Shown here is a 67-nucleotide RNA sequence from Bacillus sp. J14TS2, a member of the family "Bacillaceae-1 RNA". The match comes from Rfam's covariance-model search (42 bits). The family's consensus secondary structure is taken from published work. The organism belongs to Bacillus, within Bacteria. The family's RNA type in Rfam is small RNA.
[Rfam]
RNA sequence: GAUAAAGGAUCUUCGACUAAGGACUGACACGUUCUGUGUCAAACGUCAAAAUCACCACACAUGUGCA
Number, nucleotide and partner (000 for none) at each position: 001g000002a000003u000004a000005a000006a000007g000008g000009a000010u000011c000012u050013u049014c000015g047016a046017c045018u000019a000020a000021g000022g000023a000024c000025u000026g040027a039028c038029a037030c036031g000032u000033u000034c000035u000036g030037u029038g028039u027040c026041a000042a000043a000044c000045g017046u016047c015048a000049a013050a012051a000052u000053c000054a000055c000056c065057a064058c063059a000060c000061a000062u000063g058064u057065g056066c000067a000